[Rfam]
The family of this 103-nucleotide sequence from Gracilibacillus halophilus is "Purine riboswitch aptamer". The base pairs follow the family's consensus structure, which is taken from published work. It scores 75 bits against the family's covariance model. Riboswitches are metabolite binding domains within certain messenger RNAs that serve as precision sensors for their corresponding targets.
RNA sequence: AUAUGAUAAAUCAUGAUCCGUCGUAUAAUGUUGGGGAUAUGGCCCAAGAGUUUCUACCAGAGCACCGUAAAAGGCUCUGACUACGAGGAGGAUGGCUACUAGU
Dot-bracket structure: ..................(.(((((...(.(((((.......))))).)........((((((..........))))))..))))).)...............